[Rfam]
RNA sequence: UAUAGUCUUUGGGGCAAGGUGCGAAAGCGACGCUUUCAAUUCCUGACCGGCGGUCAUAGUCCGCUAACCUCCUUCGGAGGUUGAACCGAUGCGAUUUCGGUACCGACAGUACAGUCUGGAUGGAAAAAGACGGCA
Numbered sequence: 001u002a003u004a005g006u007c008u009u010u011g012g013g014g015c016a017a018g019g020u021g022c023g024a025a026a027g028c029g030a031c032g033c034u035u036u037c038a039a040u041u042c043c044u045g046a047c048c049g050g051c052g053g054u055c056a057u058a059g060u061c062c063g064c065u066a067a068c069c070u071c072c073u074u075c076g077g078a079g080g081u082u083g084a085a086c087c088g089a090u091g092c093g094a095u096u097u098c099g100g101u102a103c104c105g106a107c108a109g110u111a112c113a114g115u116c117u118g119g120a121u122g123g124a125a126a127a128a129g130a131c132g133g134c135a
Stems, first nucleotide, its partner, number of pairs: 003133001005131006017044003046115002048105002050064004059103002067081003085101005107118003
FMN riboswitch aptamer (RFN element): a 135-nucleotide RNA from Megasphaera vaginalis. It scores 91 bits against the family's covariance model. The RFN element is a highly conserved domain that is found frequently in the 5'-untranslated regions of prokaryotic mRNAs that encode for flavin mononucleotide (FMN) biosynthesis and transport proteins.